[Rfam]
RNA sequence: AAUGGCAUGUGAUGAUACAAUGAUAUGCAAUUACAGAUGAAUUGUGAUGAUACAACUCCGCUUAUUAUCUGAUGCCAUC
Numbered sequence: 001a002a003u004g005g006c007a008u009g010u011g012a013u014g015a016u017a018c019a020a021u022g023a024u025a026u027g028c029a030a031u032u033a034c035a036g037a038u039g040a041a042u043u044g045u046g047a048u049g050a051u052a053c054a055a056c057u058c059c060g061c062u063u064a065u066u067a068u069c070u071g072a073u074g075c076c077a078u079c
Stems, first nucleotide, its partner, number of pairs: 003077005